This 71-nucleotide RNA from Arenimonas donghaensis belongs to the Rfam family "tRNA". Rfam links the family to the GO term triplet codon-amino acid adaptor activity.

RNA sequence: UGGGGGAUCGUCUAAUGGUAGGACUGCAGACUCUGACUCUGCCUAUCUAGGUUCGAAUCCUAGUCCCCCAG
Number, nucleotide and partner (000 for none) at each position: 001u070002g069003g068004g067005g066006g065007a064008u000009c000010g024011u023012c022013u021014a000015a000016u000017g000018g000019u000020a000021g013022g012023a011024c010025u000026g042027c041028a040029g039030a038031c000032u000033c000034u000035g000036a000037c000038u030039c029040u028041g027042c026043c000044u000045a000046u000047c063048u062049a061050g060051g059052u000053u000054c000055g000056a000057a000058u000059c051060c050061u049062a048063g047064u007065c006066c005067c004068c003069c002070a001071g000

Background:
The organism belongs to Arenimonas donghaensis, within Bacteria. It scores 61 bits against the family's covariance model. Rfam classes the family as a transfer RNA.